[Rfam]
RNA sequence: UUACUACCAAACCCUAUCUCCACCUCCACGUGGUGAUCGCUGGAAGUUCUGUCUUAGUGAAAAAUUGUAGACAGGGAAGG
Numbered sequence: 001u002u003a004c005u006a007c008c009a010a011a012c013c014c015u016a017u018c019u020c021c022a023c024c025u026c027c028a029c030g031u032g033g034u035g036a037u038c039g040c041u042g043g044a045a046g047u048u049c050u051g052u053c054u055u056a057g058u059g060a061a062a063a064a065u066u067g068u069a070g071a072c073a074g075g076g077a078a079g080g
Base pairs, nucleotide, nucleotide: 013080014079015078017076018075019074022034023033024032045066046065047064048063050062052060053059

Shown here is an 80-nucleotide RNA from Hermetia illucens, a member of the family "drz-agam-1 ribozyme". The family has 7 seed sequences and 10,507 matches in Rfam 15.1. For this family Rfam cites "Widespread occurrence of self-cleaving ribozymes" (Webb et al., Science, 2009). It scores 42 bits against the family's covariance model.